[Rfam]
RNA sequence: CUACCGUUAUCGCGAGAUAAGGGGAAGAGCGGGCAGAAGUCAGCCGAGGGCAUAGUAGCUUGUAUGCAGUAGAGCGAAGGCC
Numbered sequence: 001c002u003a004c005c006g007u008u009a010u011c012g013c014g015a016g017a018u019a020a021g022g023g024g025a026a027g028a029g030c031g032g033g034c035a036g037a038a039g040u041c042a043g044c045c046g047a048g049g050g051c052a053u054a055g056u057a058g059c060u061u062g063u064a065u066g067c068a069g070u071a072g073a074g075c076g077a078a079g080g081c082c
Base pairs, nucleotide, nucleotide: 001027002026004023005022007020008019009018010017011016040047041046049082050081051080058075059074060073061072
RNA: Group II catalytic intron D1-D4-1